[Rfam]
Nucleotides: 150
Stems, first nucleotide, its partner, number of pairs: 001137004008031008032132006042055002056117003064093009096111004
Number, partner (000 for none) and nucleotide at each position: 001137c002136g003135c004134u005000g006000a007000g008031u009030c010029g011028c012027g013026u014025c015024c016000a017000c018000c019000a020000g021000c022000a023000c024015g025014g026013g027012c028011g029010c030009g031008a032132g033131c034130c035129g036128g037127g038000g039000a040000c041000c042055c043054a044000a045000c046000c047000g048000c049000a050000c051000c052000a053000g054043u055042g056117g057116g058115g059000u060000g061000a062000g063000u064093c065092c066091c067090g068089c069088c070087u071086c072085c073000c074000g075000a076000g077000c078000u079000c080000c081000g082000c083000u084000c085072g086071g087070g088069g089068g090067u091066g092065g093064g094000u095000a096111g097110g098109g099108c100000g101000u102000u103000u104000c105000c106000c107000c108099g109098c110097c111096c112000g113000a114000a115058c116057c117056c118000g119000u120000c121000a122000g123000c124000u125000a126000a127037c128036c129035c130034g131033g132032u133000a134004g135003g136002c137001g138000g139000c140000c141000a142000u143000g144000g145000g146000a147000a148000g149000a150000a

A member of the RNA family "c-di-AMP riboswitch aptamer (ydaO/yuaA leader)" from Geodermatophilus marinus, 150 nucleotides long.
A reference for the family is Barrick et al. (2004), "New RNA motifs suggest an expanded scope for riboswitches in bacterial genetic control", Proc Natl Acad Sci U S A.
Rfam describes the family as follows. This family represents a conserved RNA structure found upstream of the ydaO and yuaA genes in Bacillus subtilis and related genes in other bacteria.